Background: A member of the RNA family "Group I catalytic intron" from Micractinium conductrix, 471 nucleotides long. The match comes from Rfam's covariance-model search (69 bits). Lineage of the source: Eukaryota > core chlorophytes > Chlorellales > Chlorellaceae > Micractinium. The literature on the family includes a 1990 paper in Annu Rev Biochem by Cech, "Self-splicing of group I introns".
RNA sequence: AUGUGCAUGUGUAACCUUGUGUAACGCACCCGCUGCAAAUAUAAAAGUGGGGAGCGAGAGCCAAGAGAUGCAUGUAUGGUUGUCGGCGACACUCUCAAAUUGCCUGGACGUCCUGCUAGGUCGUGGGUACCGCCCUGUUGGUGAAAGUUGGCAGGGCACCUCGGUGAAAGUCGAGGGUGUGGUAAAAAUCUCACGGAUAGGGAUGAUGGGCAGCGAAGGUCUAAAGGCAAGUCGCGGUUUGAUGUUUCUCUAAGGCUAGAGCUCCCUUUGUGGUGGAGCCGUCCCUGGUCAUUUCAGUGCCGAGGGAGGUCGGGGGAGGCGGUAGGGGUGAAACCCCGCGAUCGUCUCCAUAACCAAUUGAAACGCCCAAUCGCGACUUGCCCAUGGCUGAAGUUCACAGACUAAAUGGGAGUGGGUCCAGGCAUCGUGGCCUGGGCUUAAGAUAUAGUCGGUCCCCACUGAAAGGUGGCC
Number, nucleotide and partner (000 for none) at each position: 001a000002u000003g000004u000005g000006c000007a000008u000009g000010u000011g000012u000013a000014a000015c000016c000017u000018u000019g000020u000021g000022u000023a000024a000025c000026g000027c000028a000029c000030c000031c000032g000033c000034u000035g000036c000037a000038a000039a000040u000041a000042u000043a000044a000045a000046a000047g000048u000049g000050g000051g000052g000053a000054g000055c000056g000057a000058g000059a000060g000061c000062c000063a000064a000065g000066a000067g000068a000069u000070g000071c000072a000073u000074g000075u000076a000077u000078g000079g000080u000081u000082g000083u000084c000085g000086g000087c000088g000089a000090c414091a413092c412093u411094c410095u000096c408097a407098a000099a000100u000101u212102g211103c210104c209105u208106g207107g000108a000109c000110g000111u203112c202113c201114u200115g000116c000117u000118a000119g000120g000121u000122c000123g000124u000125g000126g000127g000128u000129a000130c000131c000132g000133c000134c000135c000136u000137g000138u000139u000140g000141g000142u000143g000144a000145a000146a000147g000148u000149u000150g000151g000152c000153a000154g000155g000156g000157c000158a000159c000160c000161u000162c000163g000164g000165u000166g000167a000168a000169a000170g000171u000172c000173g000174a000175g000176g000177g000178u000179g000180u000181g000182g000183u000184a000185a000186a000187a000188a000189u000190c000191u000192c000193a000194c000195g000196g000197a000198u000199a000200g114201g113202g112203a111204u000205g000206a000207u106208g105209g104210g103211c102212a101213g394214c393215g000216a000217a000218g389219g388220u387221c386222u000223a000224a000225a000226g382227g381228c380229a379230a378231g377232u376233c375234g374235c373236g372237g371238u370239u369240u000241g000242a000243u000244g000245u000246u000247u000248c000249u000250c000251u000252a000253a000254g000255g000256c000257u000258a000259g000260a000261g000262c000263u000264c000265c000266c000267u000268u000269u000270g000271u000272g000273g000274u000275g000276g000277a000278g000279c000280c000281g000282u000283c000284c000285c000286u000287g000288g000289u000290c000291a000292u000293u000294u000295c000296a000297g000298u000299g000300c000301c000302g000303a000304g000305g000306g000307a000308g000309g000310u000311c000312g000313g000314g000315g000316g000317a000318g000319g000320c000321g000322g000323u000324a000325g000326g000327g000328g000329u000330g000331a000332a000333a000334c000335c000336c000337c000338g000339c000340g000341a000342u000343c000344g000345u000346c000347u000348c000349c000350a000351u000352a000353a000354c000355c000356a000357a000358u000359u000360g000361a000362a000363a000364c000365g000366c000367c000368c000369a239370a238371u237372c236373g235374c234375g233376a232377c231378u230379u229380g228381c227382c226383c000384a000385u000386g221387g220388c219389u218390g000391a000392a000393g214394u213395u000396c000397a000398c451399a000400g450401a449402c448403u447404a446405a000406a000407u097408g096409g000410g094411a093412g092413u091414g090415g000416g437417u436418c435419c434420a433421g432422g431423c430424a000425u000426c000427g000428u000429g000430g423431c422432c421433u420434g419435g418436g417437c416438u000439u000440a000441a000442g000443a000444u000445a000446u404447a403448g402449u401450c400451g398452g000453u000454c000455c000456c469457c468458a467459c466460u465461g000462a000463a000464a000465g460466g459467u458468g457469g456470c000471c000